[Rfam]
RNA: Cag non-coding RNA1
Organism: Helicobacter pylori
RNA sequence: GUGUUUUUUAGAUGGAAAACUCCUUUAUUCUUUAACAGAUGUUUUCUGUUCUUUGUUUGGCAUAAACAAACAAAUCGUUGGUUUGUGCUAUACCACAUGUUAGUAUCAGCAAGUGGGGUAUUCUUUGAGAUUUGGAGUUAGAUUAGGGUGGUUUUGUAAAAUAUUUAUUAUUUUAUGCUCCUUUGUAAGUUCACCGCCCUGAACUAUUUCUUU
Numbered sequence: 001g002u003g004u005u006u007u008u009u010a011g012a013u014g015g016a017a018a019a020c021u022c023c024u025u026u027a028u029u030c031u032u033u034a035a036c037a038g039a040u041g042u043u044u045u046c047u048g049u050u051c052u053u054u055g056u057u058u059g060g061c062a063u064a065a066a067c068a069a070a071c072a073a074a075u076c077g078u079u080g081g082u083u084u085g086u087g088c089u090a091u092a093c094c095a096c097a098u099g100u101u102a103g104u105a106u107c108a109g110c111a112a113g114u115g116g117g118g119u120a121u122u123c124u125u126u127g128a129g130a131u132u133u134g135g136a137g138u139u140a141g142a143u144u145a146g147g148g149u150g151g152u153u154u155u156g157u158a159a160a161a162u163a164u165u166u167a168u169u170a171u172u173u174u175a176u177g178c179u180c181c182u183u184u185g186u187a188a189g190u191u192c193a194c195c196g197c198c199c200u201g202a203a204c205u206a207u208u209u210c211u212u213u
Stems, first nucleotide, its partner, number of pairs: 009027004014023003034050006058090010069079003093116004098111004134210005140205002143202010156176008177190003